[Rfam]
tRNA: a 74-nucleotide sequence from Roseiconus nitratireducens.

RNA sequence: GGGCCAGUAGCUCAGUUGGUUAGAGCAGACGACUCAUAAUCGUUUUGUCGCGGGUUCAAGUCCUGCCUGGCCUA
Numbered sequence: 001g002g003g004c005c006a007g008u009a010g011c012u013c014a015g016u017u018g019g020u021u022a023g024a025g026c027a028g029a030c031g032a033c034u035c036a037u038a039a040u041c042g043u044u045u046u047g048u049c050g051c052g053g054g055u056u057c058a059a060g061u062c063c064u065g066c067c068u069g070g071c072c073u074a
Base pairs, nucleotide, nucleotide: 001073002072003071004070005069006068007067010026011025012024013023028044029043030042031041032040050066051065052064053063054062

For this family Rfam cites "The tertiary structure of tRNA and the development of the genetic code" (Hou, Trends Biochem Sci, 1993).